[Rfam]
RNA: U11 spliceosomal RNA
RNA sequence: AAAAAGGGCACUCGCUACUUUUAUAGCGCGUCGGCACGGUAUUAAAAUGCCGUGCUCAUGACGGGGUAUGGCCAAUCAAGACAUACCUAGUACGUAAUUUUUGUAAACGCGAGGCUGUUGGCUGCCAAUUUUGCACCGGCGCCUCC
Dot-bracket structure: .......(.((((((((......)))))((((((((((((........)))))))...)))))(((((((...........)))))))))).)..................((((.(((((.(((.......))))))))))))..
Numbered sequence: 001a002a003a004a005a006g007g008g009c010a011c012u013c014g015c016u017a018c019u020u021u022u023a024u025a026g027c028g029c030g031u032c033g034g035c036a037c038g039g040u041a042u043u044a045a046a047a048u049g050c051c052g053u054g055c056u057c058a059u060g061a062c063g064g065g066g067u068a069u070g071g072c073c074a075a076u077c078a079a080g081a082c083a084u085a086c087c088u089a090g091u092a093c094g095u096a097a098u099u100u101u102u103g104u105a106a107a108c109g110c111g112a113g114g115c116u117g118u119u120g121g122c123u124g125c126c127a128a129u130u131u132u133g134c135a136c137c138g139g140c141g142c143c144u145c146c
Stems, first nucleotide, its partner, number of pairs: 008093001010091003013028005029063005034055007064088007112144004117140005123135003